Annotation:
This 119-nucleotide sequence from Glycine max belongs to the Rfam family "MIR4374 microRNA precursor family". The source organism's lineage runs through Eukaryota, Streptophytina, Magnoliopsida, Pentapetalae and Glycine subgen. Soja. The match comes from Rfam's covariance-model search (111 bits). The family's consensus secondary structure was predicted with RNAalifold.
[Rfam]
RNA sequence: CAAGGACGGUGCUUAUCUCAGCAACGUCUUUGAAAGUACGCAUUCUAAGACGAUGCUUACAUUAGCAACGUCUUAGAAUGCCUACUUUUAAAGAUGUUGCUGAGGUAAGCACUGUCUUA
Numbered sequence: 001c002a003a004g005g006a007c008g009g010u011g012c013u014u015a016u017c018u019c020a021g022c023a024a025c026g027u028c029u030u031u032g033a034a035a036g037u038a039c040g041c042a043u044u045c046u047a048a049g050a051c052g053a054u055g056c057u058u059a060c061a062u063u064a065g066c067a068a069c070g071u072c073u074u075a076g077a078a079u080g081c082c083u084a085c086u087u088u089u090a091a092a093g094a095u096g097u098u099g100c101u102g103a104g105g106u107a108a109g110c111a112c113u114g115u116c117u118u119a
Stems, first nucleotide, its partner, number of pairs: 004117004009112012022099017041080012054067004
Dot-bracket structure: ...((((.((((((((((((.(((((((((((((((((..((((((((((((.((((......)))).))))))))))))..))))))))))))))))).)))))))))))).))))..